Shown here is a 95-nucleotide sequence from Penicillium alfredii, a member of the family "A. fumigatus snoRNA Afu_263". It scores 90 bits against the family's covariance model.
RNA sequence: CUGGAUGAUGAUCAACAAUAUCCAAAGCAUAGUUCACCUGAAAUCUUCGGAUUGCUGAACGACAACCUAUAACCAUCUUUCACCUUUAUCUGACC
Number, nucleotide and partner (000 for none) at each position: 001c000002u000003g000004g000005a000006u020007g019008a000009u017010g016011a000012u000013c000014a000015a000016c010017a009018a000019u007020a006021u000022c000023c000024a000025a000026a000027g000028c000029a000030u000031a000032g060033u059034u058035c057036a056037c000038c000039u000040g000041a000042a053043a052044u051045c050046u000047u000048c000049g000050g045051a044052u043053u042054g000055c000056u036057g035058a034059a033060c032061g000062a000063c000064a000065a000066c000067c000068u000069a000070u000071a000072a000073c000074c000075a000076u000077c000078u000079u000080u000081c000082a000083c000084c000085u000086u000087u000088a000089u000090c000091u000092g000093a000094c000095c000